[Rfam]
RNA: MIR1520 microRNA precursor family
Organism: Glycine soja
RNA sequence: UUAAAGAAUGAUGUUAACUAUCACGUGUCACGUUUUUAUUGGAUGAUAACUGUCACAUGUCCAUGAAAGAUGAAAUGAAUUGUUGUUUUCAUUGAUCAAUCAGAACAUGACACGUGAUAGUUAACAUCA
Numbered sequence: 001u002u003a004a005a006g007a008a009u010g011a012u013g014u015u016a017a018c019u020a021u022c023a024c025g026u027g028u029c030a031c032g033u034u035u036u037u038a039u040u041g042g043a044u045g046a047u048a049a050c051u052g053u054c055a056c057a058u059g060u061c062c063a064u065g066a067a068a069g070a071u072g073a074a075a076u077g078a079a080u081u082g083u084u085g086u087u088u089u090c091a092u093u094g095a096u097c098a099a100u101c102a103g104a105a106c107a108u109g110a111c112a113c114g115u116g117a118u119a120g121u122u123a124a125c126a127u128c129a
Stems, first nucleotide, its partner, number of pairs: 020118004025113002029109002033105004038100005